[Rfam]
RNA: MIR2118 microRNA precursor family
Organism: Aegilops tauschii
RNA sequence: GCUAGGAAGAGGAAGAAGGAGAAGGACUAAGAGCAGCGGGAAUGAGAACAUAGAGGAAAAGUCUAACUAUUGGUCCACUUCGUGUGUUGAGAUGGAAAUUUAGUUUGAUAUUUCCUGAUGCCUCUCAUUCCUAUCCUUAUGCGCCCCUUCCUCUUCCUUUUCGUU
Numbered sequence: 001g002c003u004a005g006g007a008a009g010a011g012g013a014a015g016a017a018g019g020a021g022a023a024g025g026a027c028u029a030a031g032a033g034c035a036g037c038g039g040g041a042a043u044g045a046g047a048a049c050a051u052a053g054a055g056g057a058a059a060a061g062u063c064u065a066a067c068u069a070u071u072g073g074u075c076c077a078c079u080u081c082g083u084g085u086g087u088u089g090a091g092a093u094g095g096a097a098a099u100u101u102a103g104u105u106u107g108a109u110a111u112u113u114c115c116u117g118a119u120g121c122c123u124c125u126c127a128u129u130c131c132u133a134u135c136c137u138u139a140u141g142c143g144c145c146c147c148u149u150c151c152u153c154u155u156c157c158u159u160u161u162c163g164u165u
Base pairs, nucleotide, nucleotide: 009156010155011154012153013152015150016149017148021146028139029138030137031136038132039131040130041129042128043127044126045125046124047123049120050119051118053116055115056114057113058112059111061109